[Rfam]
RNA sequence: AGCUGAUGAUGAAAUUUGAUUCUGCCAAAUGAACAACUGUGAUAUUAUCAUUUCCGUUCCGCUCUUCUCUGAGGCU
Numbered sequence: 001a002g003c004u005g006a007u008g009a010u011g012a013a014a015u016u017u018g019a020u021u022c023u024g025c026c027a028a029a030u031g032a033a034c035a036a037c038u039g040u041g042a043u044a045u046u047a048u049c050a051u052u053u054c055c056g057u058u059c060c061g062c063u064c065u066u067c068u069c070u071g072a073g074g075c076u
Stems, first nucleotide, its partner, number of pairs: 001076004
The record is a 76-nucleotide RNA from Bucorvus abyssinicus, which matches "Small nucleolar RNA SNORD47" in Rfam.
NCBI's taxonomy places the organism under Eukaryota, Vertebrata, Amniota, Saurischia, Bucorvus.
The family has 20 seed sequences and 755 matches in Rfam 15.1.
The base pairs follow the family's consensus structure, which was predicted with ILM.
The family's RNA type in Rfam is C/D-box small nucleolar RNA.
The match comes from Rfam's covariance-model search (52 bits).
Gene Ontology terms of the family: nucleolus and RNA processing.
A reference for the family is Galardi et al. (2002), "Purified box C/D snoRNPs are able to reproduce site-specific 2'-O-methylation of target RNA in vitro", Mol Cell Biol.